[Rfam]
RNA: c-di-GMP-I riboswitch aptamer
RNA sequence: UAGUGAAAAUGGCAAAUCUAUCGAAAGGUAGAGACGCAAAGCUAUGGGUCUAAGGUUUUUCACAAACUAUGAUUGCCAGGUUGCCGAA
Numbered sequence: 001u002a003g004u005g006a007a008a009a010u011g012g013c014a015a016a017u018c019u020a021u022c023g024a025a026a027g028g029u030a031g032a033g034a035c036g037c038a039a040a041g042c043u044a045u046g047g048g049u050c051u052a053a054g055g056u057u058u059u060u061c062a063c064a065a066a067c068u069a070u071g072a073u074u075g076c077c078a079g080g081u082u083g084c085c086g087a088a
Stems, first nucleotide, its partner, number of pairs: 012037002017032006040082004045078003048073003055067004